[Rfam]
RNA sequence: AUGUUAUCAAGAAAGGCGGAGGGAUUAGACCCUGCGAAGCCUUAGCAACCCUUUAUUCGUAAAGAAGGUGCUAAAUUCUACUUAAACAUUUGUUUUAGAUAGAUAACCA
Numbered sequence: 001a002u003g004u005u006a007u008c009a010a011g012a013a014a015g016g017c018g019g020a021g022g023g024a025u026u027a028g029a030c031c032c033u034g035c036g037a038a039g040c041c042u043u044a045g046c047a048a049c050c051c052u053u054u055a056u057u058c059g060u061a062a063a064g065a066a067g068g069u070g071c072u073a074a075a076u077u078c079u080a081c082u083u084a085a086a087c088a089u090u091u092g093u094u095u096u097a098g099a100u101a102g103a104u105a106a107c108c109a
Stems, first nucleotide, its partner, number of pairs: 003107006013043005021032003026080004044072004049068002051064004076101001081098002084095003

Rfam assigns this 109-nucleotide RNA from Flaviramulus basaltis to the family "SAM riboswitch aptamer (S box leader)". Taxonomically the source falls in Flaviramulus (Bacteria, Bacteroidota, Flavobacteriia, Flavobacteriales). The base pairs follow the family's consensus structure, which is taken from published work.